[Rfam]
RNA: Drosophila small cajal body-specific RNA PsiU2-55
Nucleotides: 180
Stems, first nucleotide, its partner, number of pairs: 004059007012050001014048001017045003021041003027036002074115006083103001085101001087099001089097001116173006124166001128162002132159002135156001137154004
Number, partner (000 for none) and nucleotide at each position: 001000u002000u003000u004059a005058c006057a007056u008055g009054g010053c011000c012050g013000u014048a015000g016000a017045g018044u019043u020000c021041c022040c023039a024000g025000u026000u027036g028035u029000a030000c031000g032000c033000a034000u035028a036027u037000a038000c039023u040022g041021g042000u043019a044018a045017c046000g047000c048014u049000u050012c051000a052000u053010g054009c055008c056007a057006u058005g059004u060000u061000a062000g063000a064000u065000c066000a067000a068000a069000c070000a071000a072000u073000a074115a075114g076113g077112c078111c079110c080000g081000a082000u083103u084000u085101a086000c087099u088000a089097c090000c091000a092000a093000u094000u095000u096000a097089g098000c099087g100000a101085u102000u103083g104000a105000u106000u107000c108000c109000u110079g111078g112077g113076u114075u115074u116173u117172g118171c119170a120169a121168u122000g123000u124166g125000a126000a127000u128162g129161u130000u131000c132159g133158u134000u135156c136000c137154g138153a139152u140151u141000g142000u143000g144000g145000a146000a147000c148000u149000u150000a151140a152139a153138u154137c155000u156135g157000g158133a159132c160000u161129g162128c163000u164000g165000a166124u167000a168121g169120u170119u171118g172117c173116a174000u175000a176000c177000a178000c179000a180000c